[Rfam]
RNA sequence: AUAGCUUCCGAAUAACGAGAAAGUGAAAUAUAGGAACACUUUCUGGUUCAGACAGAGGCUUAUAUCAAAACUCUCGAAUCAGUUUUUGAUGGUGAAAAAACUUUUUUUGCCAUCAUCAAACUUUCUUCCUUUUAUUGGAUAGAUUCGAAUAUUU
Numbered sequence: 001a002u003a004g005c006u007u008c009c010g011a012a013u014a015a016c017g018a019g020a021a022a023g024u025g026a027a028a029u030a031u032a033g034g035a036a037c038a039c040u041u042u043c044u045g046g047u048u049c050a051g052a053c054a055g056a057g058g059c060u061u062a063u064a065u066c067a068a069a070a071c072u073c074u075c076g077a078a079u080c081a082g083u084u085u086u087u088g089a090u091g092g093u094g095a096a097a098a099a100a101c102u103u104u105u106u107u108u109g110c111c112a113u114c115a116u117c118a119a120a121c122u123u124u125c126u127u128c129c130u131u132u133u134a135u136u137g138g139a140u141a142g143a144u145u146c147g148a149a150u151a152u153u154u
Stems, first nucleotide, its partner, number of pairs: 003060006014048003018044004023039003075147006082121003088114003092111001095108005127139003

Small nucleolar RNA snoR138: a 154-nucleotide RNA sequence from Arabis alpina. Rfam classes the family as an H/ACA-box small nucleolar RNA. The source organism's lineage runs through Eukaryota, Viridiplantae, Streptophytina, Embryophyta and Arabis. For this family Rfam cites "Mining small RNA sequencing data: a new approach to identify small nucleolar RNAs in Arabidopsis" (Chen and Wu, Nucleic Acids Res, 2009). The family's consensus secondary structure was predicted with mfold. Rfam links the family to the GO terms RNA processing and nucleolus.